[Rfam]
This 79-nucleotide sequence from Chanos chanos belongs to the Rfam family "mir-27 microRNA precursor family".
RNA sequence: GUGAGGUGCAGGACUUGGCCCACUUUGUGAACAGAUCUUUAUAAACCUAUGUUCACAGUGGCUAAGUUCCGCGCCUCUG
Numbered sequence: 001g002u003g004a005g006g007u008g009c010a011g012g013a014c015u016u017g018g019c020c021c022a023c024u025u026u027g028u029g030a031a032c033a034g035a036u037c038u039u040u041a042u043a044a045a046c047c048u049a050u051g052u053u054c055a056c057a058g059u060g061g062c063u064a065a066g067u068u069c070c071g072c073g074c075c076u077c078u079g
Base pairs, nucleotide, nucleotide: 011069012068013067014066015065016064017063018062019061020060027056028055029054030053031052032051033050